[Rfam]
RNA sequence: UGUCGGGGGGAGAGAUUGACUUGACUGUUUAAUUCAGUCAGUCUUUUCUCUCUCCUAUA
Numbered sequence: 001u002g003u004c005g006g007g008g009g010g011a012g013a014g015a016u017u018g019a020c021u022u023g024a025c026u027g028u029u030u031a032a033u034u035c036a037g038u039c040a041g042u043c044u045u046u047u048c049u050c051u052c053u054c055c056u057a058u059a
Stems, first nucleotide, its partner, number of pairs: 001059003005055004010050004018043004024038004
Rfam assigns this 59-nucleotide RNA sequence from Plutella xylostella to the family "mir-14 microRNA precursor family". The literature on the family includes a 2009 paper in BMC Genomics by Li et al., "Direct sequencing and expression analysis of a large number of miRNAs in Aedes aegypti and a multi-species survey of novel mosquito miRNAs". The base pairs follow the family's consensus structure, which was predicted with RNAalifold.